Shown here is a 125-nucleotide RNA sequence from Branchiostoma belcheri, a member of the family "mir-2060 microRNA precursor family". A search with the family's covariance model found it, with a score of 56 bits. Gene Ontology terms of the family: miRNA-mediated post-transcriptional gene silencing and RISC complex.
RNA sequence: GUAUAUCUGUGUAUAGACGGAGUUCAGUACCAAGGACAAGUGCGAGUGCCAAUAUAAUAAAUAGAUGUGUUUGUGUGUAUCUGUGUGUGGAUGGCAUUCAGGACCAAGGACAGGUAUGCUUUUUA
Numbered sequence: 001g002u003a004u005a006u007c008u009g010u011g012u013a014u015a016g017a018c019g020g021a022g023u024u025c026a027g028u029a030c031c032a033a034g035g036a037c038a039a040g041u042g043c044g045a046g047u048g049c050c051a052a053u054a055u056a057a058u059a060a061a062u063a064g065a066u067g068u069g070u071u072u073g074u075g076u077g078u079a080u081c082u083g084u085g086u087g088u089g090g091a092u093g094g095c096a097u098u099c100a101g102g103a104c105c106a107a108g109g110a111c112a113g114g115u116a117u118g119c120u121u122u123u124u125a
Base pairs, nucleotide, nucleotide: 004116005115006114007113008112009111010110019105020104023101024100026098027097028096030094031093032092034086036084037083038082040080041079042078043077044076